[Rfam]
RNA sequence: UGCUUCGUCAAUACUGGUUGUGACGUGAUGAAAUUUUUCUACCCUCAUAUCACAGCCAUUUUGACGAGUUCAG
Numbered sequence: 001u002g003c004u005u006c007g008u009c010a011a012u013a014c015u016g017g018u019u020g021u022g023a024c025g026u027g028a029u030g031a032a033a034u035u036u037u038u039c040u041a042c043c044c045u046c047a048u049a050u051c052a053c054a055g056c057c058a059u060u061u062u063g064a065c066g067a068g069u070u071c072a073g
Base pairs, nucleotide, nucleotide: 005067006066007065008064009063010062011061013059015058016057017056018055019054020053021052022051023050026049027048
A member of the RNA family "mir-2 microRNA precursor family" from Polypedilum vanderplanki, 73 nucleotides long. The match comes from Rfam's covariance-model search (53 bits). The family's consensus secondary structure was predicted with PFOLD. Rfam links the family to the GO terms miRNA-mediated post-transcriptional gene silencing and RISC complex.